Rfam assigns this 46-nucleotide RNA from Fimbriiglobus ruber to the family "Acido-Lenti-1 RNA". It scores 47 bits against the family's covariance model. The family's consensus secondary structure is taken from published work. The source organism's lineage runs through Bacteria, Planctomycetota, Planctomycetia, Gemmataceae and Fimbriiglobus.
RNA sequence: CCCCGGGUUCACACCCGGGGCUACCUUGUGCCGUCCCUCCGGGGCU
Numbered sequence: 001c002c003c004c005g006g007g008u009u010c011a012c013a014c015c016c017g018g019g020g021c022u023a024c025c026u027u028g029u030g031c032c033g034u035c036c037c038u039c040c041g042g043g044g045c046u
Stems, first nucleotide, its partner, number of pairs: 001020008033045005